[Rfam]
RNA sequence: ACUUCAGACCGCGGGAGCUCGGGCGUAACCGGGCUGAGAGGGUAGCCAGCGCUACCGACCGCAUGAACCUGUCCGGGUAAUGCCGGCGUAGGGAGCGUGUGUCAAUGGCGCG
Numbered sequence: 001a002c003u004u005c006a007g008a009c010c011g012c013g014g015g016a017g018c019u020c021g022g023g024c025g026u027a028a029c030c031g032g033g034c035u036g037a038g039a040g041g042g043u044a045g046c047c048a049g050c051g052c053u054a055c056c057g058a059c060c061g062c063a064u065g066a067a068c069c070u071g072u073c074c075g076g077g078u079a080a081u082g083c084c085g086g087c088g089u090a091g092g093g094a095g096c097g098u099g100u101g102u103c104a105a106u107g108g109c110g111c112g
Stems, first nucleotide, its partner, number of pairs: 006100001008098002011062004017034005041056005068092004073086004
This 112-nucleotide sequence from Acrocarpospora pleiomorpha belongs to the Rfam family "TPP riboswitch aptamer (THI element)". The family's consensus secondary structure is taken from published work.